[Rfam]
RNA sequence: ACCUGCAUUCGCAAGGGAUUGAGGUCUCGCCCGGGACUUGGUCAUUGAUAGCGCAGGGAGAGGAGCUCCGAAAGUGUUUCCCGUGUUCGGUGGGUUCGAUCCCGUCCCUCCCAAACCCUGUAGCCUGUAGCUU
Dot-bracket structure: .(((((.((....((.(((((.((((........))))))))).))...)).)))))..........(.(.(.((.........(((.((.(((...........))).).).)))......)).).).)...
Numbered sequence: 001a002c003c004u005g006c007a008u009u010c011g012c013a014a015g016g017g018a019u020u021g022a023g024g025u026c027u028c029g030c031c032c033g034g035g036a037c038u039u040g041g042u043c044a045u046u047g048a049u050a051g052c053g054c055a056g057g058g059a060g061a062g063g064a065g066c067u068c069c070g071a072a073a074g075u076g077u078u079u080c081c082c083g084u085g086u087u088c089g090g091u092g093g094g095u096u097c098g099a100u101c102c103c104g105u106c107c108c109u110c111c112c113a114a115a116c117c118c119u120g121u122a123g124c125c126u127g128u129a130g131c132u133u
Stems, first nucleotide, its partner, number of pairs: 002057005008051002014046002017043005023038004068130001070128001072126001074124002085116003089112001090110001092108003
Source information: The record is a 133-nucleotide RNA sequence from Calonectris borealis, which matches "Small nucleolar RNA SNORA71" in Rfam. The base pairs follow the family's consensus structure, which was predicted with PFOLD. Rfam 15.1 lists 1,805 matches to the family in 606 species. For this family Rfam cites "The family of box ACA small nucleolar RNAs is defined by an evolutionarily conserved secondary structure and ubiquitous sequence elements essential for RNA accumulation" (Ganot et al., Genes Dev, 1997). Rfam describes the family as follows. The members of this family belong to the H/ACA class of snoRNAs which bind a number of proteins (including dyskerin, Gar1p and Nop10p) to form snoRNP complexes. This class of snoRNAs are thought to guide the sites of modification of uridines to pseudouridines by forming direct base pairing interactions with substrate RNAs. Taxonomically the source falls in Calonectris (Eukaryota, Bilateria, Craniata, Gnathostomata).